[Rfam]
RNA: Small nucleolar RNA SNORD74
RNA sequence: CCCAUGUCUGCGUGAUGAGAUAAAUGUUGGUAGGGACAUCUGAUUGUCAGAGUGAAGAAAUGCCAACAGCUCUGACCGCAUGGG
Number, nucleotide and partner (000 for none) at each position: 001c084002c083003c082004a081005u080006g079007u078008c000009u000010g000011c000012g000013u000014g000015a000016u000017g000018a000019g000020a000021u000022a000023a000024a000025u000026g000027u000028u000029g000030g000031u000032a000033g000034g000035g000036a000037c000038a000039u000040c000041u000042g000043a000044u000045u000046g000047u000048c000049a000050g000051a000052g000053u000054g000055a000056a000057g000058a000059a000060a000061u000062g000063c000064c000065a000066a000067c000068a000069g000070c000071u000072c000073u000074g000075a000076c000077c000078g007079c006080a005081u004082g003083g002084g001